The family of this 136-nucleotide RNA from Gossypium schwendimanii is "MIR7502 microRNA precursor family".
The family's consensus secondary structure was predicted with RNAalifold.
Its family is annotated with miRNA-mediated post-transcriptional gene silencing and RISC complex in the Gene Ontology.
The organism belongs to Gossypium, within Eukaryota.
[Rfam]
RNA sequence: UGUUAAAAAAUUUAUCCAUUUAUGCUGUUAAAAUUUCAUUCUUGUACGCGUACAUCUGACACAUCACAUGCCAUUAUCUAGUUAUUCUGUUAAGCACACUAGUUUUUAACAAUACAAAUGAAUGAAAUUUUUAACA
Numbered sequence: 001u002g003u004u005a006a007a008a009a010a011u012u013u014a015u016c017c018a019u020u021u022a023u024g025c026u027g028u029u030a031a032a033a034u035u036u037c038a039u040u041c042u043u044g045u046a047c048g049c050g051u052a053c054a055u056c057u058g059a060c061a062c063a064u065c066a067c068a069u070g071c072c073a074u075u076a077u078c079u080a081g082u083u084a085u086u087c088u089g090u091u092a093a094g095c096a097c098a099c100u101a102g103u104u105u106u107u108a109a110c111a112a113u114a115c116a117a118a119u120g121a122a123u124g125a126a127a128u129u130u131u132u133a134a135c136a
Stems, first nucleotide, its partner, number of pairs: 002135008011126005018119004023114002026111001028109006